This 84-nucleotide RNA sequence from Bombyx mori belongs to the Rfam family "mir-2807 microRNA precursor family". The source organism's lineage runs through Eukaryota, Ecdysozoa, Amphiesmenoptera, Lepidoptera and Bombyx. A reference for the family is Cai et al. (2010), "Novel microRNAs in silkworm (Bombyx mori)", Funct Integr Genomics.

[Rfam]
RNA sequence: UUAACUCAACUUUGUAUGGAGUUGGAACGUUUACCUACGUUUGCCGCUAGAGGCACUGUUCCAACUGCAUACAAUUUUGAGCUA
Number, nucleotide and partner (000 for none) at each position: 001u000002u000003a000004a000005c000006u000007c000008a078009a077010c000011u000012u074013u073014g072015u071016a070017u000018g068019g000020a066021g065022u064023u063024g062025g061026a060027a059028c058029g057030u000031u000032u000033a000034c052035c000036u050037a000038c000039g047040u046041u000042u000043g000044c000045c000046g040047c039048u000049a000050g036051a000052g034053g000054c000055a000056c000057u029058g028059u027060u026061c025062c024063a023064a022065c021066u020067g000068c018069a000070u016071a015072c014073a013074a012075u000076u000077u009078u008079g000080a000081g000082c000083u000084a000